[Rfam]
RNA sequence: CUUUGCCUUCAGCCUCUUUAUGAUGCUGCCUUGUGGAAUCUGGAUCAAGCAGCAUUGUACUGGGCUAUGAAGGCACAG
Numbered sequence: 001c002u003u004u005g006c007c008u009u010c011a012g013c014c015u016c017u018u019u020a021u022g023a024u025g026c027u028g029c030c031u032u033g034u035g036g037a038a039u040c041u042g043g044a045u046c047a048a049g050c051a052g053c054a055u056u057g058u059a060c061u062g063g064g065c066u067a068u069g070a071a072g073g074c075a076c077a078g
Base pairs, nucleotide, nucleotide: 014064015063016062019059020058021057022056023055024054025053026052027051028050030049031048032047033046